RNA sequence: GUCGGGGUCAUUACUGUCCAGCCCACCACCGUUCCUGUCGUGAGCGAAUUGCCUGGCCGCACGAGCGCAUUUCUCGUCGCCCAGGUUCGUGCACGCGUCGACGGCAUUGUGCUGCGUCGUGAAUUCACGGAAGGCGCGGAAGUGAAGGCGGGCCAGCGGCUCUACAAGAUCGA
Numbered sequence: 001g002u003c004g005g006g007g008u009c010a011u012u013a014c015u016g017u018c019c020a021g022c023c024c025a026c027c028a029c030c031g032u033u034c035c036u037g038u039c040g041u042g043a044g045c046g047a048a049u050u051g052c053c054u055g056g057c058c059g060c061a062c063g064a065g066c067g068c069a070u071u072u073c074u075c076g077u078c079g080c081c082c083a084g085g086u087u088c089g090u091g092c093a094c095g096c097g098u099c100g101a102c103g104g105c106a107u108u109g110u111g112c113u114g115c116g117u118c119g120u121g122a123a124u125u126c127a128c129g130g131a132a133g134g135c136g137c138g139g140a141a142g143u144g145a146a147g148g149c150g151g152g153c154c155a156g157c158g159g160c161u162c163u164a165c166a167a168g169a170u171c172g173a
Base pairs, nucleotide, nucleotide: 004053005052007050008047009046011043012042013041014040016038018037021034023031056149057148058147059143060142065137066136067135068134072133074131075130079092080091082089094121095120097118099116100115102114103113104112105111106110157172158171160168161167